Shown here is a 139-nucleotide RNA, a member of the family "small Cajal body-specific RNA 17". Gene Ontology terms of the family: Cajal body, nucleolus and RNA processing. Pairs were carried over by alignment from the consensus structure, which is taken from published work. A reference for the family is Tycowski et al. (2004), "Guide RNAs with 5' Caps and Novel Box C/D snoRNA-like Domains for Modification of snRNAs in Metazoa", Curr Biol. Rfam describes the family as follows. scaRNAs are a specific class of small nuclear RNAs which localise to the Cajal bodies and guide the modification of RNA polymerase II transcribed spliceosomal RNAs U1, U2, U4, U5 and U12. The complete human U12-22/U4-8 scaRNA is composed of two tandem C/D box domains (termed U12-22 and U4-8).
[Rfam]
Nucleotides: 139
Stems, first nucleotide, its partner, number of pairs: 001139001003137001005136009019125002022122002055093006061086002066082002068079001069077002
Number, partner (000 for none) and nucleotide at each position: 001139c002000a003137c004000c005136u006135g007134g008133g009132u010131c011130c012129c013128c014000g015000a016000g017000g018000c019125a020124u021000c022122c023121c024000g025000g026000a027000g028000u029000g030000a031000g032000c033000c034000c035000g036000g037000u038000g039000u040000a041000u042000u043000u044000u045000c046000c047000u048000u049000a050000u051000a052000u053000g054000a055093u056092u057091a058090g059089g060088c061086c062085u063000c064000u065000c066082a067081u068079a069077c070076a071000g072000g073000c074000g075000c076070u077069g078000c079068u080000g081067g082066u083000u084000u085062g086061g087000a088060g089059c090058c091057u092056g093055a094000g095000a096000g097000g098000a099000u100000u101000a102000u103000g104000a105000a106000a107000a108000c109000g110000u111000g112000g113000c114000a115000g116000g117000u118000g119000a120000u121023g122022g123000a124020g125019u126000c127000a128013g129012g130011g131010g132009a133008c134007c135006u136005g137003g138000a139001g